M-box riboswitch aptamer (ykoK leader): a 168-nucleotide RNA from Listeria innocua.
For this family Rfam cites "New RNA motifs suggest an expanded scope for riboswitches in bacterial genetic control" (Barrick et al., Proc Natl Acad Sci U S A, 2004).
The pairing is the family consensus, mapped onto this sequence.
Taxonomically the source falls in Listeria (Bacteria, Bacillati, Bacilli, Caryophanales).
The sequence is in the family's curated seed alignment.
RNA sequence: AGUUUUGCCUGUUAGGUGAGGCUCCUAUGCAAACACAGGCCACUGCCCAAAAAUGUCCAAAGACGCCAAUGGGUAGAACAGGGAUUGUCGGAUUAAGGCUUUCCAUAAUGUGGCUAAGAGUAAUUCUUUACGUUGUAUAGUGCCAAAACUUUAGCGAGGGGAGUCUGU
Numbered sequence: 001a002g003u004u005u006u007g008c009c010u011g012u013u014a015g016g017u018g019a020g021g022c023u024c025c026u027a028u029g030c031a032a033a034c035a036c037a038g039g040c041c042a043c044u045g046c047c048c049a050a051a052a053a054u055g056u057c058c059a060a061a062g063a064c065g066c067c068a069a070u071g072g073g074u075a076g077a078a079c080a081g082g083g084a085u086u087g088u089c090g091g092a093u094u095a096a097g098g099c100u101u102u103c104c105a106u107a108a109u110g111u112g113g114c115u116a117a118g119a120g121u122a123a124u125u126c127u128u129u130a131c132g133u134u135g136u137a138u139a140g141u142g143c144c145a146a147a148a149c150u151u152u153a154g155c156g157a158g159g160g161g162a163g164u165c166u167g168u
Stems, first nucleotide, its partner, number of pairs: 006163001008161003011155002013096001015150003020144003025140008039114005045074005054065004082104003087099003116128003